[Rfam]
RNA sequence: AUGGUUGGGCAUAUUACAGCGCUUUUUUGAGAAAGCGCUGUAAUAUGCCCACCCAUAUAUGAAAUUAUGGUUGGGCAUUUUAGAGCGCUUUUUUGAGAAAGCGUUGUAAUAUGCCCAACCAUAAUU
Numbered sequence: 001a002u003g004g005u006u007g008g009g010c011a012u013a014u015u016a017c018a019g020c021g022c023u024u025u026u027u028u029g030a031g032a033a034a035g036c037g038c039u040g041u042a043a044u045a046u047g048c049c050c051a052c053c054c055a056u057a058u059a060u061g062a063a064a065u066u067a068u069g070g071u072u073g074g075g076c077a078u079u080u081u082a083g084a085g086c087g088c089u090u091u092u093u094u095g096a097g098a099a100a101g102c103g104u105u106g107u108a109a110u111a112u113g114c115c116c117a118a119c120c121a122u123a124a125u126u
Base pairs, nucleotide, nucleotide: 003053004052005051007049008048017040018039019038020037021036022035023034024033025032066123067122068121069120070119071118072117073116074115075114076113082107084105085104086103087102088101089100090099091098092097
RNA: Small nucleolar RNA SNORA69
Organism: Cicer arietinum